[Rfam]
RNA sequence: UUUGGGAAGUGAUGAUAAUCUAUAUCUAUGUAUAUCAGAGGCUCAGCCCGUCUGUGCAUUGCUGAACAGAUAUUUUGCACGUCAGUCUGAUCCCAAA
Numbered sequence: 001u002u003u004g005g006g007a008a009g010u011g012a013u014g015a016u017a018a019u020c021u022a023u024a025u026c027u028a029u030g031u032a033u034a035u036c037a038g039a040g041g042c043u044c045a046g047c048c049c050g051u052c053u054g055u056g057c058a059u060u061g062c063u064g065a066a067c068a069g070a071u072a073u074u075u076u077g078c079a080c081g082u083c084a085g086u087c088u089g090a091u092c093c094c095a096a097a
Base pairs, nucleotide, nucleotide: 001097002096003095004094005093006092007091